[Rfam]
RNA: PyrR binding site
RNA sequence: AUAGCCUUUAAACCGGUCCCGAGAGGCCGAAAAGGACGAGUAUAUAGAUAUUUCUAUGUCUAUGUUUACCUAUGCCCUUUUGUCCUCUGAGACGGAAGGGUAUUUAUU
Dot-bracket structure: ....(((((....(((((......))))).)))))..(.(.((((((((((....)))))))))).).)..(((((((((((((......))))))))))))).....